[Rfam]
RNA sequence: AGCCUCAUUCUACAUAAGAAUGGGUGCUGUUAAUCAGUGUCCAGAACUGGUUAACAUGGCUAAGUUGAGACACUGGACAUGUUUCCAUCAUAGUAGAUAUGUUACAGUGGUGAUAAUGAGACCUGUAACAUUU
Numbered sequence: 001a002g003c004c005u006c007a008u009u010c011u012a013c014a015u016a017a018g019a020a021u022g023g024g025u026g027c028u029g030u031u032a033a034u035c036a037g038u039g040u041c042c043a044g045a046a047c048u049g050g051u052u053a054a055c056a057u058g059g060c061u062a063a064g065u066u067g068a069g070a071c072a073c074u075g076g077a078c079a080u081g082u083u084u085c086c087a088u089c090a091u092a093g094u095a096g097a098u099a100u101g102u103u104a105c106a107g108u109g110g111u112g113a114u115a116a117u118g119a120g121a122c123c124u125g126u127a128a129c130a131u132u133u
Stems, first nucleotide, its partner, number of pairs: 002060003008054001021043007072126002075123002086112006